RNA sequence: CCCGUCCGCCCCGUGGACUCCCCUGACCCGGCGCCCCGUCGCGGGCUACCCUUGCGGCGUGCGCCUUCCAUGAGAAGCGCAAAGCCGACAGCCGUCGCACUUCAGGGAGCAUCUUCCAUG
Numbered sequence: 001c002c003c004g005u006c007c008g009c010c011c012c013g014u015g016g017a018c019u020c021c022c023c024u025g026a027c028c029c030g031g032c033g034c035c036c037c038g039u040c041g042c043g044g045g046c047u048a049c050c051c052u053u054g055c056g057g058c059g060u061g062c063g064c065c066u067u068c069c070a071u072g073a074g075a076a077g078c079g080c081a082a083a084g085c086c087g088a089c090a091g092c093c094g095u096c097g098c099a100c101u102u103c104a105g106g107g108a109g110c111a112u113c114u115u116c117c118a119u120g
Base pairs, nucleotide, nucleotide: 060081061080062079063078065077066076067075068074084098085097087096088095089094
Shown here is a 120-nucleotide sequence, a member of the family "Streptomyces-metH RNA". It scores 95 bits against the family's covariance model.